Rfam assigns this 57-nucleotide sequence from Gossypium gossypioides to the family "Plastid-rps18 3UTR RNA". Rfam's curators write: Plastid rps18 is a non-coding RNA (ncRNA) present in plastids. It was identified as a short stem-loop motif in the 3 prime untranslate region (3UTR) of rps18 gene. The base pairs follow the family's consensus structure, which was predicted with LocARNA. Rfam classes the family as a cis-regulatory element. For this family Rfam cites "Retrograde signaling in plants: A critical review focusing on the GUN pathway and beyond" (Richter et al., Plant Commun, 2023). It scores 70 bits against the family's covariance model.
RNA sequence: UGCAAAUAUUUUAUGAUUUAGAAGCAAUUGUUUCUUGUACAAAUUGUGUAUUAAUCU
Numbered sequence: 001u002g003c004a005a006a007u008a009u010u011u012u013a014u015g016a017u018u019u020a021g022a023a024g025c026a027a028u029u030g031u032u033u034c035u036u037g038u039a040c041a042a043a044u045u046g047u048g049u050a051u052u053a054a055u056c057u
Stems, first nucleotide, its partner, number of pairs: 018037001020035006
Dot-bracket structure: .................(.((((((....)))))).)....................